[Rfam]
Record summary:
This 115-nucleotide sequence from Panicum miliaceum belongs to the Rfam family "Small nucleolar RNA Z278". Rfam classes the family as a C/D-box small nucleolar RNA. Rfam links the family to the GO terms RNA processing and nucleolus. Taxonomically the source falls in Panicum sect. Panicum (Eukaryota, Streptophytina, Poaceae, Panicodae). From the family's description: snoZ278 is a C/D box small nucleolar RNA. Its methylation guide targets have not been reported. A reference for the family is Chen et al. (2003), "The high diversity of snoRNAs in plants: identification and comparative study of 120 snoRNA genes from Oryza sativa", Nucleic Acids Res. Pairs were carried over by alignment from the consensus structure, which was predicted with PFOLD.
RNA sequence: UCCUAUGAUGAUUUUCCCGAUGUGUGAGAUGUAGAUAGCUCCAAGUCCCUGCUUGUCAGGGAGAACCUACUUGGAGUCCUACAUUCAGAUGAGAUUUCUGGGCAUUCUCUGAGGU
Numbered sequence: 001u002c003c004u005a006u007g008a009u010g011a012u013u014u015u016c017c018c019g020a021u022g023u024g025u026g027a028g029a030u031g032u033a034g035a036u037a038g039c040u041c042c043a044a045g046u047c048c049c050u051g052c053u054u055g056u057c058a059g060g061g062a063g064a065a066c067c068u069a070c071u072u073g074g075a076g077u078c079c080u081a082c083a084u085u086c087a088g089a090u091g092a093g094a095u096u097u098c099u100g101g102g103c104a105u106u107c108u109c110u111g112a113g114g115u
Stems, first nucleotide, its partner, number of pairs: 002114002047061005